[Rfam]
RNA sequence: UAUGACGAUACGGGAGAGACCGGGACACCGGCGCCGAAGGAGCAACCGCCCCGGAAACUCUCAGGCAAAAGGACCGUAUCGCCAGG
Numbered sequence: 001u002a003u004g005a006c007g008a009u010a011c012g013g014g015a016g017a018g019a020c021c022g023g024g025a026c027a028c029c030g031g032c033g034c035c036g037a038a039g040g041a042g043c044a045a046c047c048g049c050c051c052c053g054g055a056a057a058c059u060c061u062c063a064g065g066c067a068a069a070a071g072g073a074c075c076g077u078a079u080c081g082c083c084a085g086g
Stems, first nucleotide, its partner, number of pairs: 006081008020031004033066003036062002040060003046054002